Overview: Group I catalytic intron: a 545-nucleotide sequence from Funneliformis geosporum.
Nucleotides: 545
Base pairs, nucleotide, nucleotide: 001013002012003011004010005009078433079432080431081430082429084427085426089362090361091360092359093358094357099353100352101351363413364412368408369407370406371405376401377400379398417524419523420522421521422520423519435510436509437508438507439506440505441504442503443502531542532541533540534539
Number, partner (000 for none) and nucleotide at each position: 001013a002012u003011g004010a005009g006000u007000g008000a009005u010004u011003c012002g013001u014000c015000c016000u017000u018000g019000g020000g021000u022000g023000g024000a025000a026000g027000g028000g029000c030000c031000u032000u033000a034000a035000c036000c037000u038000a039000u040000u041000g042000c043000g044000a045000a046000a047000u048000g049000g050000a051000a052000a053000a054000a055000u056000u057000g058000g059000u060000a061000u062000a063000c064000c065000c066000c067000a068000u069000a070000c071000a072000c073000g074000g075000c076000c077000a078433c079432a080431u081430c082429g083000u084427c085426a086000a087000a088000u089362u090361g091360c092359c093358g094357g095000a096000a097000u098000c099353u100352c101351c102000u103000a104000a105000a106000g107000c108000c109000u110000u111000u112000g113000g114000g115000u116000a117000c118000c119000g120000c121000g122000g123000a124000g125000g126000g127000c128000g129000u130000g131000a132000a133000a134000a135000c136000g137000g138000a139000c140000u141000u142000g143000c144000a145000g146000c147000a148000g149000a150000u151000g152000g153000u154000c155000g156000a157000a158000a159000g160000g161000c162000u163000a164000u165000c166000g167000g168000a169000u170000g171000g172000u173000a174000a175000u176000a177000a178000c179000c180000c181000c182000u183000u184000a185000g186000g187000a188000u189000c190000u191000u192000a193000g194000g195000u196000g197000g198000a199000a200000c201000g202000a203000a204000g205000a206000u207000u208000a209000a210000u211000u212000c213000u214000a215000a216000a217000u218000u219000c220000c221000u222000u223000c224000c225000c226000g227000g228000a229000c230000c231000u232000u233000a234000a235000u236000u237000a238000c239000u240000g241000g242000a243000a244000g245000a246000c247000g248000g249000a250000u251000a252000g253000a254000u255000c256000g257000g258000a259000a260000g261000g262000u263000c264000u265000g266000a267000a268000u269000u270000g271000g272000a273000u274000g275000g276000u277000u278000a279000g280000g281000a282000a283000c284000c285000a286000a287000c288000u289000c290000c291000g292000a293000a294000c295000a296000g297000g298000u299000a300000g301000a302000a303000u304000g305000u306000a307000a308000a309000u310000u311000c312000u313000a314000u315000g316000u317000g318000a319000u320000c321000u322000a323000u324000c325000u326000a327000a328000u329000u330000a331000a332000g333000g334000a335000u336000c337000u338000c339000g340000a341000a342000a343000g344000a345000g346000g347000g348000a349000a350000u351101g352100g353099a354000c355000a356000a357094u358093c359092g360091g361090c362089a363413g364412c365000c366000a367000a368408g369407c370406g371405c372000u373000c374000u375000g376401g377400g378000c379398u380000c381000a382000c383000u384000g385000u386000u387000u388000c389000u390000u391000u392000u393000g394000g395000a396000g397000c398379a399000a400377c401376c402000c403000g404000u405371g406370c407369g408368u409000g410000c411000a412364g413363u414000u415000c416000a417524u418000c419523g420522a421521c422520u423519a424000a425000a426085u427084g428000g429082c430081g431080a432079u433078g434000g435510g436509u437508g438507a439506c440505c441504g442503a443502a444000c445000a446000g447000a448000a449000g450000c451000a452000a453000c454000u455000u456000u457000u458000a459000c460000u461000u462000u463000g464000a465000g466000u467000u468000u469000a470000a471000g472000c473000a474000a475000u476000g477000g478000a479000a480000u481000c482000u483000g484000u485000g486000u487000u488000g489000g490000a491000u492000a493000a494000u495000g496000a497000u498000c499000c500000g501000a502443u503442u504441c505440g506439g507438u508437u509436g510435c511000u512000u513000a514000a515000g516000a517000u518000a519423u520422a521421g522420u523419c524417a525000a526000u527000a528000g529000a530000c531542g532541c533540c534539c535000g536000a537000a538000a539534g540533g541532g542531u543000a544000u545000c
About the family: Group I catalytic introns are large self-splicing ribozymes. They catalyse their own excision from mRNA, tRNA and rRNA precursors in a wide range of organisms. The core secondary structure consists of 9 paired regions (P1-P9). These fold to essentially two domains - the P4-P6 domain (formed from the stacking of P5, P4, P6 and P6a helices) and the P3-P9 domain (formed from the P8, P3, P7 and P9 helices). Its family is annotated with Group I intron splicing in the Gene Ontology. The base pairs follow the family's consensus structure, which is taken from published work.